[Rfam]
RNA: c-di-GMP-I-GGC riboswitch aptamer
RNA sequence: CGCGACAAUGGCAAACUUGGCGGAAGCUAAGGACGCAAAGCUAUGGACCUUCCAGGUAAUGCUGAUGGUUGCCAGGCUACCGAAC
Numbered sequence: 001c002g003c004g005a006c007a008a009u010g011g012c013a014a015a016c017u018u019g020g021c022g023g024a025a026g027c028u029a030a031g032g033a034c035g036c037a038a039a040g041c042u043a044u045g046g047a048c049c050u051u052c053c054a055g056g057u058a059a060u061g062c063u064g065a066u067g068g069u070u071g072c073c074a075g076g077c078u079a080c081c082g083a084a085c
Base pairs, nucleotide, nucleotide: 003082004081011036012035016031017030018029019028020027021026034071039078040077041076042075044074045073046072047069048068049067